[Rfam]
RNA sequence: CAACCAAACCAACCACAAAAAGAACCUCAAGUAGCCUUUCUACUCCCCCCCCCAAACCAAAUCAAUCACCAUGACUCCCUGCUCUUGCAACUCCUGCGGCUGCUCCAGCGACUGCAACGGCUGCUCCUGCUCCUCCUGCGGCGUAAGUUCCC
Numbered sequence: 001c002a003a004c005c006a007a008a009c010c011a012a013c014c015a016c017a018a019a020a021a022g023a024a025c026c027u028c029a030a031g032u033a034g035c036c037u038u039u040c041u042a043c044u045c046c047c048c049c050c051c052c053c054a055a056a057c058c059a060a061a062u063c064a065a066u067c068a069c070c071a072u073g074a075c076u077c078c079c080u081g082c083u084c085u086u087g088c089a090a091c092u093c094c095u096g097c098g099g100c101u102g103c104u105c106c107a108g109c110g111a112c113u114g115c116a117a118c119g120g121c122u123g124c125u126c127c128u129g130c131u132c133c134u135c136c137u138g139c140g141g142c143g144u145a146a147g148u149u150c151c152c
Stems, first nucleotide, its partner, number of pairs: 080110004087103003114139003123130002

This 152-nucleotide RNA from Aspergillus clavatus belongs to the Rfam family "A. fumigatus sRNA Afu_254". The literature on the family includes a 2008 paper in Nucleic Acids Res by Jochl et al., "Small ncRNA transcriptome analysis from Aspergillus fumigatus suggests a novel mechanism for regulation of protein synthesis". NCBI's taxonomy places the organism under Eukaryota, saccharomyceta, Eurotiomycetes, Eurotiomycetidae, Aspergillus clavatus.